[Rfam]
RNA sequence: AUGCGCCCAAUUCCGCCUAAAUGCUGCCCACGUCCUGUGAGCAACGGCGGAAUGUCGUCAUCCUGACUC
Numbered sequence: 001a002u003g004c005g006c007c008c009a010a011u012u013c014c015g016c017c018u019a020a021a022u023g024c025u026g027c028c029c030a031c032g033u034c035c036u037g038u039g040a041g042c043a044a045c046g047g048c049g050g051a052a053u054g055u056c057g058u059c060a061u062c063c064u065g066a067c068u069c
Base pairs, nucleotide, nucleotide: 011052012051013050014049015048016047017046027041029039030038031037057067058066059065
The family of this 69-nucleotide sequence from Evansella caseinilytica is "Bacillaceae-1 RNA". The family has 95 seed sequences and 5,721 matches in Rfam 15.1. Taxonomically the source falls in Evansella (Bacteria, Bacillati, Bacillota, Bacillaceae). The base pairs follow the family's consensus structure, which is taken from published work.